[Rfam]
RNA sequence: CGCCGACCACCGCCGAACCGGGCAGCGGCCUCAGCCGCCCCGGACCGGGGACCCACCGCAGCACUGGGGUGAAGCGCGCACCGGCACGAGCCGGGAGCGCCGGGCGUCCUCCCCGCCCGAACCCGUCAGCUAACUCGGUAGGCGGUUUCGUGGAGAACA
Numbered sequence: 001c002g003c004c005g006a007c008c009a010c011c012g013c014c015g016a017a018c019c020g021g022g023c024a025g026c027g028g029c030c031u032c033a034g035c036c037g038c039c040c041c042g043g044a045c046c047g048g049g050g051a052c053c054c055a056c057c058g059c060a061g062c063a064c065u066g067g068g069g070u071g072a073a074g075c076g077c078g079c080a081c082c083g084g085c086a087c088g089a090g091c092c093g094g095g096a097g098c099g100c101c102g103g104g105c106g107u108c109c110u111c112c113c114c115g116c117c118c119g120a121a122c123c124c125g126u127c128a129g130c131u132a133a134c135u136c137g138g139u140a141g142g143c144g145g146u147u148u149c150g151u152g153g154a155g156a157a158c159a
Stems, first nucleotide, its partner, number of pairs: 011144004018043005044139006054066002067124003075099003102118004
About this RNA
c-di-AMP riboswitch aptamer (ydaO/yuaA leader): a 159-nucleotide sequence from Blastococcus sp. CT_GayMR19. The match comes from Rfam's covariance-model search (54 bits). The source organism's lineage runs through Bacteria, Bacillati, Actinomycetes, Geodermatophilales and Blastococcus.